[Rfam]
RNA sequence: CAUAUUUUAUGAUGGUAUGAUACUAAACUCCUAACGGGAGGGAUUAUACUUGAUUUUCAUAUG
Numbered sequence: 001c002a003u004a005u006u007u008u009a010u011g012a013u014g015g016u017a018u019g020a021u022a023c024u025a026a027a028c029u030c031c032u033a034a035c036g037g038g039a040g041g042g043a044u045u046a047u048a049c050u051u052g053a054u055u056u057u058c059a060u061a062u063g
Stems, first nucleotide, its partner, number of pairs: 001063005014050008023041001029039003
The family of this 63-nucleotide sequence from Mytilus coruscus is "Selenocysteine insertion sequence 1". It is annotated as a cis-regulatory element. NCBI's taxonomy places the organism under Eukaryota, Autobranchia, Mytilida, Mytilinae, Mytilus.